[Rfam]
RNA sequence: GAGACAUGAUGAGUGAAUAAUUUUUGGUCCGUGUUUCUGAUUUAACCGUGACCGAUAACCUUUAUUCUUAAUUUACUCUCUGAUCUC
Number, nucleotide and partner (000 for none) at each position: 001g087002a086003g085004a084005c000006a000007u000008g000009a000010u000011g000012a000013g000014u000015g000016a000017a000018u000019a000020a000021u000022u000023u000024u000025u000026g000027g000028u000029c000030c000031g000032u000033g000034u000035u000036u000037c000038u000039g000040a000041u000042u000043u000044a000045a000046c000047c000048g000049u000050g000051a000052c000053c000054g000055a000056u000057a000058a000059c000060c000061u000062u000063u000064a000065u000066u000067c000068u000069u000070a000071a000072u000073u000074u000075a000076c000077u000078c000079u000080c000081u000082g000083a000084u004085c003086u002087c001

Rfam assigns this 87-nucleotide RNA from Nicotiana sylvestris to the family "Small nucleolar RNA SNORD18". Rfam 15.1 lists 2,622 matches to the family in 960 species. The organism belongs to Nicotiana, within Eukaryota. Its family is annotated with RNA processing and nucleolus in the Gene Ontology.